[Rfam]
RNA sequence: GGACAUAAACGCGCAUGUAAUAAGCGGAUCGGACCCGGGGGCGGUACCCGGCGACUCCACCAUAUUCCUUUAUUGGGGGAUCAGGGGGUCGAAACAGGAUCGACGAACGUCUAAAGAUGUUAGCUUUGGCUCGGUGAGGUACCACCGUUAUCGGUCCGUUUUGUACAGUUGCCAAUAACAACCGUGCUCCGGCAAUGGCUCUGGCUGCUUAA
Numbered sequence: 001g002g003a004c005a006u007a008a009a010c011g012c013g014c015a016u017g018u019a020a021u022a023a024g025c026g027g028a029u030c031g032g033a034c035c036c037g038g039g040g041g042c043g044g045u046a047c048c049c050g051g052c053g054a055c056u057c058c059a060c061c062a063u064a065u066u067c068c069u070u071u072a073u074u075g076g077g078g079g080a081u082c083a084g085g086g087g088g089u090c091g092a093a094a095c096a097g098g099a100u101c102g103a104c105g106a107a108c109g110u111c112u113a114a115a116g117a118u119g120u121u122a123g124c125u126u127u128g129g130c131u132c133g134g135u136g137a138g139g140u141a142c143c144a145c146c147g148u149u150a151u152c153g154g155u156c157c158g159u160u161u162u163g164u165a166c167a168g169u170u171g172c173c174a175a176u177a178a179c180a181a182c183c184g185u186g187c188u189c190c191g192g193c194a195a196u197g198g199c200u201c202u203g204g205c206u207g208c209u210u211a212a
Stems, first nucleotide, its partner, number of pairs: 001131002004128002013120004025109002029106003035051005052091007132147004

Rfam assigns this 212-nucleotide sequence from Ketogulonicigenium vulgare to the family "permuted transfer-messenger RNA". Rfam describes the family as follows. Bacterial tmRNA, also known as 10Sa RNA or SsrA, is named for its dual tRNA and mRNA-like properties. A search with the family's covariance model found it, with a score of 136 bits. It is annotated as a non-coding RNA gene.